[Rfam]
Source information:
Shown here is a 281-nucleotide sequence from Macaca fascicularis, a member of the family "Mason-Pfizer monkey virus packaging signal". The match comes from Rfam's covariance-model search (214 bits). The family's RNA type in Rfam is cis-regulatory element. The base pairs follow the family's consensus structure, which was predicted with PFOLD. This family represents a group of sequences that are related to the Mason-Pfizer monkey virus (MPMV) packaging signal. The packaging signal is located in the 5' UTR and is required for specific RNA encapsidation.
RNA sequence: UGGCGCCGGGCAGGCACCUGGAAACGAGGGACUCCGUGAGGAAGAGGGCGUAAAGGAUGGUCGACCACUAAUAAAGACAAAGGAGUCAAAUUCUUCCGAUCACCGCGGGAACCUGCCGUCAGAAUCGAAAGGUAAGUGGCUGGCGUCCGAAAUGGGACAAGAAUUAAGCCAACAUCAAAUAUAUGUAGGACAAUUAAAAGAGGCUUUAAAGAUACGAGAAGUAAAGGUUAAAGGUAAUGAUUUGUUUAAAUUUUUUGAUUUUGUAAAAGACACUUGCCCUU
Numbered sequence: 001u002g003g004c005g006c007c008g009g010g011c012a013g014g015c016a017c018c019u020g021g022a023a024a025c026g027a028g029g030g031a032c033u034c035c036g037u038g039a040g041g042a043a044g045a046g047g048g049c050g051u052a053a054a055g056g057a058u059g060g061u062c063g064a065c066c067a068c069u070a071a072u073a074a075a076g077a078c079a080a081a082g083g084a085g086u087c088a089a090a091u092u093c094u095u096c097c098g099a100u101c102a103c104c105g106c107g108g109g110a111a112c113c114u115g116c117c118g119u120c121a122g123a124a125u126c127g128a129a130a131g132g133u134a135a136g137u138g139g140c141u142g143g144c145g146u147c148c149g150a151a152a153u154g155g156g157a158c159a160a161g162a163a164u165u166a167a168g169c170c171a172a173c174a175u176c177a178a179a180u181a182u183a184u185g186u187a188g189g190a191c192a193a194u195u196a197a198a199a200g201a202g203g204c205u206u207u208a209a210a211g212a213u214a215c216g217a218g219a220a221g222u223a224a225a226g227g228u229u230a231a232a233g234g235u236a237a238u239g240a241u242u243u244g245u246u247u248a249a250a251u252u253u254u255u256u257g258a259u260u261u262u263g264u265a266a267a268a269g270a271c272a273c274u275u276g277c278c279c280u281u
Stems, first nucleotide, its partner, number of pairs: 006029002010025001034048002037045001092132002094129002100124001101122001106118003141160001143158001146156004165208003168204003215257008225243006266281002269278001271276001